MIR159 microRNA precursor family: a 193-nucleotide sequence from Vitis vinifera. NCBI's taxonomy places the organism under Eukaryota, Streptophytina, Magnoliopsida, Mesangiospermae, Vitis. The sequence is in the family's curated seed alignment. Rfam links the family to the GO terms miRNA-mediated post-transcriptional gene silencing and RISC complex.
RNA sequence: UGGGGGUUGAACAAGCUGCCCUCAUUCCAAAUUCAAAAGAGUAGAAGGUGUUACAUCUGCUGGUUCAUGGAUACCUUUGUAGUGUACAGAUUAAUAUAUCCAAUGUCCCCUUUAAGGGUUUGCAUGAAUGGGGAGAUGAGGUUUCCUUCUUGACUUGUAAUUUGGUUUGAAGGGAGCUCUGAUGACCCUUCUA
Numbered sequence: 001u002g003g004g005g006g007u008u009g010a011a012c013a014a015g016c017u018g019c020c021c022u023c024a025u026u027c028c029a030a031a032u033u034c035a036a037a038a039g040a041g042u043a044g045a046a047g048g049u050g051u052u053a054c055a056u057c058u059g060c061u062g063g064u065u066c067a068u069g070g071a072u073a074c075c076u077u078u079g080u081a082g083u084g085u086a087c088a089g090a091u092u093a094a095u096a097u098a099u100c101c102a103a104u105g106u107c108c109c110c111u112u113u114a115a116g117g118g119u120u121u122g123c124a125u126g127a128a129u130g131g132g133g134a135g136a137u138g139a140g141g142u143u144u145c146c147u148u149c150u151u152g153a154c155u156u157g158u159a160a161u162u163u164g165g166u167u168u169g170a171a172g173g174g175a176g177c178u179c180u181g182a183u184g185a186c187c188c189u190u191c192u193a
Base pairs, nucleotide, nucleotide: 014178015177016176017175019173020172023169024168027165028164029163036156057135058134060132061131066126067125068124069123074118075117076116077115
Dot-bracket structure: .............((((.((..((..(((......(....................((.((....((((....((((.....................................))))....))))....)).))....................)......)))..))..)).))))...............